[Rfam]
RNA sequence: ACUGAAAAAGGCAAACCCGUCGAAAGGCGGGGACGCAAAGUCACCGAUCUAACGGAAACAGCAUGUUUCCCAGGAUGGCGGGGCCGCCAGGC
Numbered sequence: 001a002c003u004g005a006a007a008a009a010g011g012c013a014a015a016c017c018c019g020u021c022g023a024a025a026g027g028c029g030g031g032g033a034c035g036c037a038a039a040g041u042c043a044c045c046g047a048u049c050u051a052a053c054g055g056a057a058a059c060a061g062c063a064u065g066u067u068u069c070c071c072a073g074g075a076u077g078g079c080g081g082g083g084c085c086g087c088c089a090g091g092c
Base pairs, nucleotide, nucleotide: 003089004088011036012035016031017030018029019028020027021026034078040084041083042082044081045080046079047076048075049074
A member of the RNA family "c-di-GMP-I-GGC riboswitch aptamer" from Candidatus Accumulibacter cognatus, 92 nucleotides long. Taxonomically the source falls in Candidatus Accumulibacter (Bacteria, Pseudomonadati, Pseudomonadota, Betaproteobacteria). Pairs were carried over by alignment from the consensus structure, which is taken from published work. A reference for the family is Weinberg et al. (2017), "Bioinformatic analysis of riboswitch structures uncovers variant classes with altered ligand specificity", Proc Natl Acad Sci U S A. Its family is annotated with cyclic-di-GMP binding in the Gene Ontology. It scores 68 bits against the family's covariance model.